[Rfam]
This 157-nucleotide sequence belongs to the Rfam family "c-di-AMP riboswitch aptamer (ydaO/yuaA leader)".
RNA sequence: GAGUCCGGUGCGCCCAACCGCAGCCGGAGCCGGGGACCCAACCGAACCUUGGGGUGAAUCGACCGACUCCCUCACCGGGAAAGGGUCGUAGGGCAACCCUUCCGAACCACCCGCCCGAACCCGACAGCUAACUCGGUAGGCGGACGAUGGAAGGAGU
Numbered sequence: 001g002a003g004u005c006c007g008g009u010g011c012g013c014c015c016a017a018c019c020g021c022a023g024c025c026g027g028a029g030c031c032g033g034g035g036a037c038c039c040a041a042c043c044g045a046a047c048c049u050u051g052g053g054g055u056g057a058a059u060c061g062a063c064c065g066a067c068u069c070c071c072u073c074a075c076c077g078g079g080a081a082a083g084g085g086u087c088g089u090a091g092g093g094c095a096a097c098c099c100u101u102c103c104g105a106a107c108c109a110c111c112c113g114c115c116c117g118a119a120c121c122c123g124a125c126a127g128c129u130a131a132c133u134c135g136g137u138a139g140g141c142g143g144a145c146g147a148u149g150g151a152a153g154g155a156g157u
Stems, first nucleotide, its partner, number of pairs: 011142004019027001029137006039051002052122003060088004091116004
The match comes from Rfam's covariance-model search (72 bits).